[Rfam]
Record summary: Small nucleolar RNA SNORA47: a 129-nucleotide sequence from Lophotis ruficrista. Rfam 15.1 lists 733 matches to the family in 635 species. It is annotated as an H/ACA-box small nucleolar RNA. The family's consensus secondary structure was predicted with WAR.
RNA sequence: UGGAGGACUGAGAAGGUAAGACAGUUAAACUUUAUGCUGUAUCUUACUGGUUAUAGCCUCCAAAACUAUAAUAGUGCAAUCGCAAUUAUGUUUCCCCUCCUGACAUGAGGGAAAGCAGUACUGCAUUUG
Dot-bracket structure: .(((((........(((((.(((((..........))))).)..))))........)))))....................(.(.(.....(((((.((.......)))))))...).).)........